[Rfam]
RNA: Acido-Lenti-1 RNA
Organism: Aquiflexum balticum
RNA sequence: CCUAGGGUUGCAACCCUAGGCUAUCACAGAACGGCCCUUCAGGCCU
Numbered sequence: 001c002c003u004a005g006g007g008u009u010g011c012a013a014c015c016c017u018a019g020g021c022u023a024u025c026a027c028a029g030a031a032c033g034g035c036c037c038u039u040c041a042g043g044c045c046u
Base pairs, nucleotide, nucleotide: 001020002019003018004017005016006015007014008013033045034044035043036042